[Rfam]
Nucleotides: 165
Stems, first nucleotide, its partner, number of pairs: 007082003020069004026063004031049002035045003096160001098158002109144004114139006
Number, partner (000 for none) and nucleotide at each position: 001000c002000a003000a004000c005000u006000g007082c008081u009080u010000c011000a012000a013000a014000c015000a016000c017000u018000c019000u020069g021068g022067g023066a024000c025000u026063u027062g028061c029060c030000u031049u032048c033000u034000u035045u036044c037043c038000u039000u040000c041000g042000u043037g044036g045035a046000u047000c048032g049031a050000u051000u052000c053000a054000a055000u056000c057000u058000g059000u060029g061028g062027c063026a064000u065000a066023u067022c068021c069020c070000u071000a072000u073000u074000u075000u076000u077000g078000g079000a080009a081008a082007g083000c084000g085000g086000a087000g088000a089000c090000c091000a092000a093000c094000a095000c096160g097000a098158c099157c100000g101000a102000u103000u104000a105000c106000u107000c108000a109144c110143c111142g112141c113000g114139a115138u116137a117136u118135c119134u120000u121000a122000u123000c124000c125000u126000u127000u128000u129000g130000g131000a132000g133000u134119g135118g136117a137116u138115a139114u140000a141112g142111u143110g144109g145000u146000c147000c148000a149000u150000a151000u152000c153000u154000u155000c156000u157099g158098g159000c160096c161000u162000a163000c164000a165000c
The family of this 165-nucleotide RNA from Drepanopeziza brunnea is "Small nucleolar RNA snR80". Pairs were carried over by alignment from the consensus structure, which was predicted with WAR. NCBI's taxonomy places the organism under Eukaryota, Pezizomycotina, Leotiomycetes, Helotiales, Drepanopeziza brunnea f. sp. 'multigermtubi'. Its Rfam clan is "SNORA28 clan". Rfam 15.1 lists 447 matches to the family in 358 species.